[Rfam]
RNA sequence: CUUCGCGGCACGGGGUGUCCGCGCUCCGGGGCCGAUGCGGCGCCGAGGGCCGGACUGAGAUCACACCCGUCGAACCUGAUUCAGUUCACACUGGCGUAGGGAUGUCCGUUCGGCACAGC
Numbered sequence: 001c002u003u004c005g006c007g008g009c010a011c012g013g014g015g016u017g018u019c020c021g022c023g024c025u026c027c028g029g030g031g032c033c034g035a036u037g038c039g040g041c042g043c044c045g046a047g048g049g050c051c052g053g054a055c056u057g058a059g060a061u062c063a064c065a066c067c068c069g070u071c072g073a074a075c076c077u078g079a080u081u082c083a084g085u086u087c088a089c090a091c092u093g094g095c096g097u098a099g100g101g102a103u104g105u106c107c108g109u110u111c112g113g114c115a116c117a118g119c
Stems, first nucleotide, its partner, number of pairs: 007106004011069004016063001017055005075100004081094004

The family of this 119-nucleotide RNA sequence from Comamonas sp. BIGb0124 is "TPP riboswitch aptamer (THI element)". Pairs were carried over by alignment from the consensus structure, which is taken from published work. The match comes from Rfam's covariance-model search (58 bits). The organism belongs to Comamonas, within Bacteria. Vitamin B(1) in its active form thiamin pyrophosphate (TPP) is an essential coenzyme that is synthesised by coupling of pyrimidine and thiazole moieties in bacteria.